This 445-nucleotide part of an RNA from an uncultured bacterium belongs to the Rfam family "Bacterial large subunit ribosomal RNA". Rfam's curators put it in the seed alignment. On this family, see Yusupov et al., Science 2001: "Crystal structure of the ribosome at 5.5 A resolution".

[Rfam]
RNA sequence: CUCUCCGAAAUGCCUUGAGGGGCAGCCUCGUGUGUUUAAUCGUGGGGGUAAAGCACUGAAUGGACUAGGGGCAUCACCAUGCUACCGAACCCAAUCAAACUCUGAAUCCCACGAUUUCAGAGCACGGGAGUGAGACAGUGGGGGAUAAGCUUCAUUGUCGAAAGGGAAACAACCCAGACCGCCGGCUAAGGUCCCUAAGGAUACGCUCAGUGGGAAAGGAUGUGGAAUUUCUCAGACAACCAGGAUGUUGGCUUAGAAGCAGCCAUUCAUUUAAAGAGUGCGUAAUAGCUCACUGGUCAAGAGAUUCUGCGCCGAAAAUGUAACGGGGCUAAGCGUAUCACCGAAGCCGCGGGAUUGAACCCGCAAGGGUUUGAUCGGUAGGAGAGCGUUCACAGGGCGGUGAAGGUCUAGCGCAAGCAGGGCUGGAGCGCUGUGAAGUGAGUAU
Numbered sequence: 001c002u003c004u005c006c007g008a009a010a011u012g013c014c015u016u017g018a019g020g021g022g023c024a025g026c027c028u029c030g031u032g033u034g035u036u037u038a039a040u041c042g043u044g045g046g047g048g049u050a051a052a053g054c055a056c057u058g059a060a061u062g063g064a065c066u067a068g069g070g071g072c073a074u075c076a077c078c079a080u081g082c083u084a085c086c087g088a089a090c091c092c093a094a095u096c097a098a099a100c101u102c103u104g105a106a107u108c109c110c111a112c113g114a115u116u117u118c119a120g121a122g123c124a125c126g127g128g129a130g131u132g133a134g135a136c137a138g139u140g141g142g143g144g145a146u147a148a149g150c151u152u153c154a155u156u157g158u159c160g161a162a163a164g165g166g167a168a169a170c171a172a173c174c175c176a177g178a179c180c181g182c183c184g185g186c187u188a189a190g191g192u193c194c195c196u197a198a199g200g201a202u203a204c205g206c207u208c209a210g211u212g213g214g215a216a217a218g219g220a221u222g223u224g225g226a227a228u229u230u231c232u233c234a235g236a237c238a239a240c241c242a243g244g245a246u247g248u249u250g251g252c253u254u255a256g257a258a259g260c261a262g263c264c265a266u267u268c269a270u271u272u273a274a275a276g277a278g279u280g281c282g283u284a285a286u287a288g289c290u291c292a293c294u295g296g297u298c299a300a301g302a303g304a305u306u307c308u309g310c311g312c313c314g315a316a317a318a319u320g321u322a323a324c325g326g327g328g329c330u331a332a333g334c335g336u337a338u339c340a341c342c343g344a345a346g347c348c349g350c351g352g353g354a355u356u357g358a359a360c361c362c363g364c365a366a367g368g369g370u371u372u373g374a375u376c377g378g379u380a381g382g383a384g385a386g387c388g389u390u391c392a393c394a395g396g397g398c399g400g401u402g403a404a405g406g407u408c409u410a411g412c413g414c415a416a417g418c419a420g421g422g423c424u425g426g427a428g429c430g431c432u433g434u435g436a437a438g439u440g441a442g443u444a445u
Stems, first nucleotide, its partner, number of pairs: 001386006011024005026130001027128007036121001038116009051103001052101002057097003061093003068086002070083005134159010164175003179352004184348003190342003199339001201338006218313002222310010239297005245270003250264003271275001276291001280289002353376008387440001389437007397429002405424005411418002